[Rfam]
Rfam assigns this 107-nucleotide sequence from Pararobbsia alpina to the family "Guanidine-I riboswitch aptamer".

RNA sequence: UCUUAGGAUGGCUAGGGUUCCGGUCGCGUGUCUGGCGAUGUCUGGUCCGAGAGCUAUCCGGUCCUGCCGAUAGCAGGGCUCCACGGAGGGAUAAAAGCCCGGGAGGU
Numbered sequence: 001u002c003u004u005a006g007g008a009u010g011g012c013u014a015g016g017g018u019u020c021c022g023g024u025c026g027c028g029u030g031u032c033u034g035g036c037g038a039u040g041u042c043u044g045g046u047c048c049g050a051g052a053g054c055u056a057u058c059c060g061g062u063c064c065u066g067c068c069g070a071u072a073g074c075a076g077g078g079c080u081c082c083a084c085g086g087a088g089g090g091a092u093a094a095a096a097g098c099c100c101g102g103g104a105g106g107u
Base pairs, nucleotide, nucleotide: 007058008057009056010055011054012053015048016047020045021044022042023039024038025037026036027035060080061079062078063077064076065075066074067073082102084105088100089099090098